[Rfam]
RNA sequence: CCGCAAACCUUCCAGCGUGGCUGGGUCUGCUUGGUGACCCUGAUCAUUCCUGUUGUGUUUGCCAAAGCAGCCGCGGGACGGUUUGAGGCCUCACCCUGCUCUGAUUCCAGGGAGAGGUUAUAGAAAUCUCGGACAAGC
Numbered sequence: 001c002c003g004c005a006a007a008c009c010u011u012c013c014a015g016c017g018u019g020g021c022u023g024g025g026u027c028u029g030c031u032u033g034g035u036g037a038c039c040c041u042g043a044u045c046a047u048u049c050c051u052g053u054u055g056u057g058u059u060u061g062c063c064a065a066a067g068c069a070g071c072c073g074c075g076g077g078a079c080g081g082u083u084u085g086a087g088g089c090c091u092c093a094c095c096c097u098g099c100u101c102u103g104a105u106u107c108c109a110g111g112g113a114g115a116g117g118u119u120a121u122a123g124a125a126a127u128c129u130c131g132g133a134c135a136a137g138c
Base pairs, nucleotide, nucleotide: 003062004061005060006059007058008057018046019045020044023040024039025038026037027036074131075130076129077128078127089117090116091115092114094112096110097109098108
The record is a 138-nucleotide RNA sequence from Python bivittatus, which matches "Small nucleolar RNA SNORA9" in Rfam. Pairs were carried over by alignment from the consensus structure, which was predicted with PFOLD. Lineage of the source: Eukaryota > Chordata > Dipnotetrapodomorpha > Bifurcata > Python. It is annotated as an H/ACA-box small nucleolar RNA. A search with the family's covariance model found it, with a score of 113 bits.